A member of the RNA family "Mycoplasma sRNA MCS4" from Mycoplasma capricolum, 124 nucleotides long.
Lineage of the source: Bacteria > Mollicutes > Mycoplasmatales > Mycoplasmataceae > Mycoplasma capricolum subsp. capripneumoniae.
On this family, see Ushida et al., J Biochem 1997: "Probing the secondary structure of MCS4 RNA of Mycoplasma capricolum".
Abundant, small RNA of unknown function, found only in Mycoplasma.
By type it is a small RNA.

[Rfam]
RNA sequence: CAUAAAUAUCUUGUAUAUUUAUAAUAUUGGCAGUGUAGUUCUUGCUGGCUCUGGGUGACGAGAGAUCUCGAAAUCAAGAGAUUGAACCAAAAAAACAACUCUUUUUAUAAGAGUUGUUUUUUUA
Numbered sequence: 001c002a003u004a005a006a007u008a009u010c011u012u013g014u015a016u017a018u019u020u021a022u023a024a025u026a027u028u029g030g031c032a033g034u035g036u037a038g039u040u041c042u043u044g045c046u047g048g049c050u051c052u053g054g055g056u057g058a059c060g061a062g063a064g065a066u067c068u069c070g071a072a073a074u075c076a077a078g079a080g081a082u083u084g085a086a087c088c089a090a091a092a093a094a095a096c097a098a099c100u101c102u103u104u105u106u107a108u109a110a111g112a113g114u115u116g117u118u119u120u121u122u123u124a
Stems, first nucleotide, its partner, number of pairs: 002022008038087004052070004089121005096116008